[Rfam]
RNA sequence: AGGAGGAACAACCCCAGUGGCUAUUGCAGCUCUGGAAACCUGGAUUCAGCUCCCGCAUGAACUCCAGAGCUCUCGGCGUGCAGGGCCUGGAGGCUCCGGGGCGGG
Dot-bracket structure: .((((...((.(((.....(((.....(((((((((..(.((.............)).)...)))))))))...))).....)))..))....))))........

mir-8834 microRNA precursor family: a 105-nucleotide RNA sequence from Canis lupus. Pairs were carried over by alignment from the consensus structure, which was predicted with RNAalifold. Gene Ontology terms of the family: RISC complex and miRNA-mediated post-transcriptional gene silencing.